[Rfam]
RNA sequence: UAGGGUGCUCGAGUGAUGACAUCCAUGUGGACUAGAGUUUCUGAUGCUGCCUCUUCAGCAGUGUGUUUGAAGACAAACCCUUGGCUGUCUGAGCUCCCAG
Numbered sequence: 001u002a003g004g005g006u007g008c009u010c011g012a013g014u015g016a017u018g019a020c021a022u023c024c025a026u027g028u029g030g031a032c033u034a035g036a037g038u039u040u041c042u043g044a045u046g047c048u049g050c051c052u053c054u055u056c057a058g059c060a061g062u063g064u065g066u067u068u069g070a071a072g073a074c075a076a077a078c079c080c081u082u083g084g085c086u087g088u089c090u091g092a093g094c095u096c097c098c099a100g
Stems, first nucleotide, its partner, number of pairs: 001100001003098003007094002038072004045065001046062005
Annotation:
Small nucleolar RNA Z157/R69/R10: a 100-nucleotide RNA from Triticum aestivum. Clan: SNORD52 clan. Pairs were carried over by alignment from the consensus structure, which was predicted with PFOLD. By type it is a C/D-box small nucleolar RNA. The literature on the family includes a 2003 paper in Nucleic Acids Res by Chen et al., "The high diversity of snoRNAs in plants: identification and comparative study of 120 snoRNA genes from Oryza sativa". Lineage of the source: Eukaryota > Streptophytina > Poales > Poaceae > Triticum. Gene Ontology terms of the family: nucleolus and RNA processing.